RNA sequence: ACGGGUGCGGGAGGCGAUGACACGCGGCUCGCAUGACGGCCGCCUGAGCCGCGCCGAGCCACUGGCGAGACCGAGCCGCUCUGAU
Numbered sequence: 001a002c003g004g005g006u007g008c009g010g011g012a013g014g015c016g017a018u019g020a021c022a023c024g025c026g027g028c029u030c031g032c033a034u035g036a037c038g039g040c041c042g043c044c045u046g047a048g049c050c051g052c053g054c055c056g057a058g059c060c061a062c063u064g065g066c067g068a069g070a071c072c073g074a075g076c077c078g079c080u081c082u083g084a085u
Stems, first nucleotide, its partner, number of pairs: 001085001004082002007079004013060003023053007038072002041067004